[Rfam]
RNA: mir-731 microRNA precursor family
Organism: Myripristis murdjan
RNA sequence: AGGUGUGUUUCCUAAAUGACACGUUUUCUCCCGGAUUGCAGAGUAAAGCAGAGGCAACCGGGAAUUUCGUGUCAGCCAAGAAUGACACCA
Numbered sequence: 001a002g003g004u005g006u007g008u009u010u011c012c013u014a015a016a017u018g019a020c021a022c023g024u025u026u027u028c029u030c031c032c033g034g035a036u037u038g039c040a041g042a043g044u045a046a047a048g049c050a051g052a053g054g055c056a057a058c059c060g061g062g063a064a065u066u067u068c069g070u071g072u073c074a075g076c077c078a079a080g081a082a083u084g085a086c087a088c089c090a
Base pairs, nucleotide, nucleotide: 002089003088004087005086006085009082010081011080017074018073019072020071021070022069023068029063030062031061032060033059034058036057037056038055039054